[Rfam]
RNA sequence: CCCCCGGCUAGGCCGGCCAGCUGAACACGAGUCACCUUCACUCGCUGCCGGGGGUUCUCCUUGAAGGG
Number, nucleotide and partner (000 for none) at each position: 001c054002c053003c052004c051005c050006g049007g048008c047009u000010a000011g022012g021013c020014c000015g000016g000017c000018c000019a000020g013021c012022u011023g000024a000025a000026c000027a000028c044029g043030a042031g041032u000033c000034a000035c068036c067037u066038u065039c000040a000041c031042u030043c029044g028045c000046u000047g008048c007049c006050g005051g004052g003053g002054g001055u000056u000057c000058u000059c000060c000061u000062u000063g000064a000065a038066g037067g036068g035

A member of the RNA family "int-alpA RNA" from Zeimonas arvi, 68 nucleotides long. The family has 167 seed sequences and 577 matches in Rfam 15.1. Acidobacteria (1 example), Planctomycetes (1 example), Proteobacteria. By type it is a small RNA. Lineage of the source: Bacteria > Pseudomonadati > Betaproteobacteria > Burkholderiaceae > Zeimonas.